Shown here is a 190-nucleotide sequence from Corynebacterium maris, a member of the family "c-di-AMP riboswitch aptamer (ydaO/yuaA leader)".
Lineage of the source: Bacteria > Bacillati > Actinomycetes > Corynebacterium > Corynebacterium maris.

[Rfam]
RNA sequence: CCAAACUUACCGCAGACAUCGAUGGACAGGGGCGGGGGACCCACCGCGGCCACGCGCCGCACCGGGCGACCCGAUCAACGACACGUCACCCUCGGGGUGAAGCCCGCCGCAUACGCCGGCGGGCCGGGCACACCGUGAACCUCAGCCCGAACCCGACAGCUGACCCCGCAGGCGCCGCUUGAGAGGAACA
Numbered sequence: 001c002c003a004a005a006c007u008u009a010c011c012g013c014a015g016a017c018a019u020c021g022a023u024g025g026a027c028a029g030g031g032g033c034g035g036g037g038g039a040c041c042c043a044c045c046g047c048g049g050c051c052a053c054g055c056g057c058c059g060c061a062c063c064g065g066g067c068g069a070c071c072c073g074a075u076c077a078a079c080g081a082c083a084c085g086u087c088a089c090c091c092u093c094g095g096g097g098u099g100a101a102g103c104c105c106g107c108c109g110c111a112u113a114c115g116c117c118g119g120c121g122g123g124c125c126g127g128g129c130a131c132a133c134c135g136u137g138a139a140c141c142u143c144a145g146c147c148c149g150a151a152c153c154c155g156a157c158a159g160c161u162g163a164c165c166c167c168g169c170a171g172g173c174g175c176c177g178c179u180u181g182a183g184a185g186g187a188a189c190a
Stems, first nucleotide, its partner, number of pairs: 001172002006031003032169006042094001095154003103123006126148004